[Rfam]
RNA sequence: CCGGAUGCACGACCAUUCGUAACCUACUCAAGCAUGCGUCAUCGGUAACGGUGGGGUGUGAAGCCUUGAAGACAAUGUACCCCCAGCUUCACAGGGCGGCUAUCUCAUGCGAAUGAGUGGUUGGAGACUGCUAGCAGCAAAGCGGUUGAGGGG
Numbered sequence: 001c002c003g004g005a006u007g008c009a010c011g012a013c014c015a016u017u018c019g020u021a022a023c024c025u026a027c028u029c030a031a032g033c034a035u036g037c038g039u040c041a042u043c044g045g046u047a048a049c050g051g052u053g054g055g056g057u058g059u060g061a062a063g064c065c066u067u068g069a070a071g072a073c074a075a076u077g078u079a080c081c082c083c084c085a086g087c088u089u090c091a092c093a094g095g096g097c098g099g100c101u102a103u104c105u106c107a108u109g110c111g112a113a114u115g116a117g118u119g120g121u122u123g124g125a126g127a128c129u130g131c132u133a134g135c136a137g138c139a140a141a142g143c144g145g146u147u148g149a150g151g152g153g
Stems, first nucleotide, its partner, number of pairs: 002019006028069005033060005039054006084099001086097004100123001102121002107114002127146006
Group II catalytic intron D1-D4-7: a 153-nucleotide sequence from Herminiimonas arsenicoxydans. Rfam describes the family as follows. Group II introns are found in rRNA, tRNA and mRNA of organelles in fungi, plants and protists, and also in mRNA in bacteria. Gene Ontology term of the family: Group II intron splicing.